[Rfam]
RNA sequence: GGGGAUGACAGGUUUCGACGUUGGUCGUCGAGCCAGGGGAAGCGGGUCGAGGAUGCAUGGUCAUCUCGUCAACGAUCCAUGCAAACCAAUAGGUGCCGAUUCCAAGCGCACCGAGUUCGCCCUCGCCGCCUGAGCGAGCGCGACUCUGUCAGCCCGGGUGAGCUCCCGCCCCGGGUCCUGGCAUCGACUAGGGGGCUCACCUCUCACCGAGGUCGCGUAGGUGAGAGGGACAAUCAACGCGGCUGGGCCCGGCGAUGACAUGCCUGUAUGAGCAUCGGGGCCGAGCAGACCGCUGAACAGGAUGCACCCGGAGAAGCCCUGGUACCACGCUGACGGACGCGGGUUCGAUUCCCGCCAUCUCCACUC
Numbered sequence: 001g002g003g004g005a006u007g008a009c010a011g012g013u014u015u016c017g018a019c020g021u022u023g024g025u026c027g028u029c030g031a032g033c034c035a036g037g038g039g040a041a042g043c044g045g046g047u048c049g050a051g052g053a054u055g056c057a058u059g060g061u062c063a064u065c066u067c068g069u070c071a072a073c074g075a076u077c078c079a080u081g082c083a084a085a086c087c088a089a090u091a092g093g094u095g096c097c098g099a100u101u102c103c104a105a106g107c108g109c110a111c112c113g114a115g116u117u118c119g120c121c122c123u124c125g126c127c128g129c130c131u132g133a134g135c136g137a138g139c140g141c142g143a144c145u146c147u148g149u150c151a152g153c154c155c156g157g158g159u160g161a162g163c164u165c166c167c168g169c170c171c172c173g174g175g176u177c178c179u180g181g182c183a184u185c186g187a188c189u190a191g192g193g194g195g196c197u198c199a200c201c202u203c204u205c206a207c208c209g210a211g212g213u214c215g216c217g218u219a220g221g222u223g224a225g226a227g228g229g230a231c232a233a234u235c236a237a238c239g240c241g242g243c244u245g246g247g248c249c250c251g252g253c254g255a256u257g258a259c260a261u262g263c264c265u266g267u268a269u270g271a272g273c274a275u276c277g278g279g280g281c282c283g284a285g286c287a288g289a290c291c292g293c294u295g296a297a298c299a300g301g302a303u304g305c306a307c308c309c310g311g312a313g314a315a316g317c318c319c320u321g322g323u324a325c326c327a328c329g330c331u332g333a334c335g336g337a338c339g340c341g342g343g344u345u346c347g348a349u350u351c352c353c354g355c356c357a358u359c360u361c362c363a364c365u366c
Stems, first nucleotide, its partner, number of pairs: 001362007019335007030325001032323007043310005048068005054083006118142003122138005147183006154174004162196006200228009211244006246282005257273001263301003269295002339355005
transfer-messenger RNA: a 366-nucleotide RNA from Kineococcus radiotolerans. The family's consensus secondary structure is taken from published work. Taxonomically the source falls in Kineococcus radiotolerans (Bacteria, Bacillati, Kineosporiales, Kineococcus). Rfam links the family to the GO term RNA catabolic process. By type it is a non-coding RNA gene. A reference for the family is Williams and Bartel (1996), "Phylogenetic analysis of tmRNA secondary structure", RNA.